[Rfam]
RNA sequence: UUAGAGGACGUUUUAACUAUUAAACUGUUUUGUCCCUCUCUAACAACGAACAAUUUGUUAUUUGACAGAGAGGGACAAAACAGUUCAACAGUUAAAAUGUCCUCUAAC
Number, nucleotide and partner (000 for none) at each position: 001u107002u106003a105004g104005a103006g102007g000008a000009c000010g000011u097012u096013u095014u094015a093016a092017c091018u090019a000020u088021u087022a000023a085024a084025c083026u082027g081028u080029u069030u068031u067032g066033u065034c064035c000036c000037u000038c000039u000040c000041u000042a000043a000044c000045a000046a000047c000048g000049a059050a058051c057052a056053a000054u000055u000056u052057g051058u050059u049060a000061u000062u000063u000064g034065a033066c032067a031068g030069a029070g000071a000072g000073g000074g000075a000076c000077a000078a000079a000080a028081c027082a026083g025084u024085u023086c000087a021088a020089c000090a018091g017092u016093u015094a014095a013096a012097a011098u000099g000100u000101c000102c006103u005104c004105u003106a002107a001108c000

Shown here is a 108-nucleotide RNA sequence from Plutella xylostella, a member of the family "mir-8517 microRNA precursor family". Pairs were carried over by alignment from the consensus structure, which was predicted with RNAalifold. The match comes from Rfam's covariance-model search (100 bits).